This 127-nucleotide sequence from Myotis brandtii belongs to the Rfam family "Small nucleolar RNA SNORA25". A search with the family's covariance model found it, with a score of 104 bits. Rfam links the family to the GO terms RNA processing and nucleolus. From the family's description: ACA25 is a member of the H/ACA class of snoRNA that guide the sites of modification of uridines to pseudouridines. By type it is an H/ACA-box small nucleolar RNA. Lineage of the source: Eukaryota > Deuterostomia > Mammalia > Theria > Myotis.
RNA sequence: AGGUCAUUUAAAAGAGAACUUAUGGGACCAAAACCAGGAGCACUUAAUGCUGUGGCCUAAGAUUGAAGUUUUUUAUAGGAUGUAACAGAUACUCAAUAGUACUAUGUUUGCCUGAGGAGAUACAAGA
Number, nucleotide and partner (000 for none) at each position: 001a000002g057003g056004u055005c054006a053007u052008u000009u000010a000011a000012a000013a000014g045015a044016g043017a000018a000019c040020u039021u038022a000023u037024g000025g000026g035027a000028c000029c000030a000031a000032a000033a000034c000035c026036a000037g023038g021039a020040g019041c000042a000043c016044u015045u014046a000047a000048u000049g000050c000051u000052g007053u006054g005055g004056c003057c002058u000059a000060a000061g000062a000063u000064u000065g000066a000067a000068g000069u000070u120071u119072u118073u117074u116075a000076u000077a113078g112079g111080a000081u000082g000083u000084a000085a105086c000087a103088g102089a000090u101091a100092c099093u098094c000095a000096a000097u000098a093099g092100u091101a090102c088103u087104a000105u085106g000107u000108u000109u000110g000111c079112c078113u077114g000115a000116g074117g073118a072119g071120a070121u000122a000123c000124a000125a000126g000127a000